[Rfam]
RNA sequence: UGAUAUUAUCAUUCCUAAGAUAGUCCUAUUUAGCCAUCUUUAGCUCCCGGUUUUAUUUAGGACUAUCCAAACAACAAAAUGCUUC
Numbered sequence: 001u002g003a004u005a006u007u008a009u010c011a012u013u014c015c016u017a018a019g020a021u022a023g024u025c026c027u028a029u030u031u032a033g034c035c036a037u038c039u040u041u042a043g044c045u046c047c048c049g050g051u052u053u054u055a056u057u058u059a060g061g062a063c064u065a066u067c068c069a070a071a072c073a074a075c076a077a078a079a080u081g082c083u084u085c
Stems, first nucleotide, its partner, number of pairs: 019067009032052004
RNA: rhtB sRNA